[Rfam]
RNA sequence: CCGUUUCACCCGCAGAUCGCGGGCUGAAGACGAGGGUGGGGGACCCACUUCCGACGCUCGCCGCACGGUGAGCGUCUCGGGGUGAAGCCGGUCCUCGCCGGCCGGGCACCUGACUGCCCGAACCCGACAGCUCACCUCACAGGCGUACGUCAGGAAAGGA
Numbered sequence: 001c002c003g004u005u006u007c008a009c010c011c012g013c014a015g016a017u018c019g020c021g022g023g024c025u026g027a028a029g030a031c032g033a034g035g036g037u038g039g040g041g042g043a044c045c046c047a048c049u050u051c052c053g054a055c056g057c058u059c060g061c062c063g064c065a066c067g068g069u070g071a072g073c074g075u076c077u078c079g080g081g082g083u084g085a086a087g088c089c090g091g092u093c094c095u096c097g098c099c100g101g102c103c104g105g106g107c108a109c110c111u112g113a114c115u116g117c118c119c120g121a122a123c124c125c126g127a128c129a130g131c132u133c134a135c136c137u138c139a140c141a142g143g144c145g146u147a148c149g150u151c152a153g154g155a156a157a158g159g160a
Stems, first nucleotide, its partner, number of pairs: 001143002006035002036140006046079001080125003088101004104119004